Record summary
Plastid-ycf2 5UTR RNA: a 75-nucleotide RNA sequence from Phaseolus vulgaris. Rfam classes the family as a cis-regulatory element. The base pairs follow the family's consensus structure, which was predicted with LocARNA. Taxonomically the source falls in Phaseolus (Eukaryota, Spermatophyta, Gunneridae, rosids). On this family, see Richter et al., Plant Commun 2023: "Retrograde signaling in plants: A critical review focusing on the GUN pathway and beyond". The family has 204 seed sequences and 3,521 matches in Rfam 15.1. From the family's description: Plastid ycf2 is a non-coding RNA (ncRNA) recognised in plastids. It was found in the prime untranslated region (5UTR) of ycf2 genes, it presents a tRNA-like motif which suggests it can be involved in mRNA maturation, particularly involved in defining the precise 5' end of the transcript.
[Rfam]
RNA sequence: AUGCAUCCAGUAGGAAUUGAAUCUAUGCAUUCGCCAAUGAUGAGUUUGGCGCUUUAACCAUUUAUCCAUAGAUGC
Numbered sequence: 001a002u003g004c005a006u007c008c009a010g011u012a013g014g015a016a017u018u019g020a021a022u023c024u025a026u027g028c029a030u031u032c033g034c035c036a037a038u039g040a041u042g043a044g045u046u047u048g049g050c051g052c053u054u055u056a057a058c059c060a061u062u063u064a065u066c067c068a069u070a071g072a073u074g075c
Stems, first nucleotide, its partner, number of pairs: 003075005010026005040069003044066001046064001048062002051059001
Dot-bracket structure: ..(((((..(((((.......))))).............(((.(.(.((.(.......).)).).)))).)))))